MIR8024 microRNA precursor family: an 86-nucleotide sequence from Solanum tuberosum.
Lineage of the source: Eukaryota > Spermatophyta > asterids > lamiids > Solanum.
The family's consensus secondary structure was predicted with RNAalifold.
RNA sequence: UUGAAGAAUUUGAAAACUUCUACUUGUAGACUUGGAGACUUUGAAGACUUCAACCUGCAGACUUGGAGAAUUUGAAGAAUUCAACC
Numbered sequence: 001u002u003g004a005a006g007a008a009u010u011u012g013a014a015a016a017c018u019u020c021u022a023c024u025u026g027u028a029g030a031c032u033u034g035g036a037g038a039c040u041u042u043g044a045a046g047a048c049u050u051c052a053a054c055c056u057g058c059a060g061a062c063u064u065g066g067a068g069a070a071u072u073u074g075a076a077g078a079a080u081u082c083a084a085c086c
Base pairs, nucleotide, nucleotide: 001084002083003082004081005080009076010075011074012073013072014071017068018067019066020065025059026058027057028056032053033052034051035050036049037048